Rfam assigns this 81-nucleotide RNA sequence from Lepisosteus oculatus to the family "mir-128 microRNA precursor family". A reference for the family is Chen et al. (2005), "The developmental miRNA profiles of zebrafish as determined by small RNA cloning", Genes Dev.
[Rfam]
RNA sequence: GAGCGCCCGGAUCCGGGGCCGGAGCACUGUCUGAGAGGACUACAAUUCUCACAGUGAACCGGUCUCUUUUUCAGCCGCUCC
Numbered sequence: 001g002a003g004c005g006c007c008c009g010g011a012u013c014c015g016g017g018g019c020c021g022g023a024g025c026a027c028u029g030u031c032u033g034a035g036a037g038g039a040c041u042a043c044a045a046u047u048c049u050c051a052c053a054g055u056g057a058a059c060c061g062g063u064c065u066c067u068u069u070u071u072c073a074g075c076c077g078c079u080c081c
Base pairs, nucleotide, nucleotide: 007074009072010071015066016065017064018063019062020061021060025056026055027054028053029052030051033050034049035048

Pairs were carried over by alignment from the consensus structure, which was predicted with RNAalifold.
Lineage of the source: Eukaryota > Bilateria > Craniata > Actinopteri > Lepisosteus.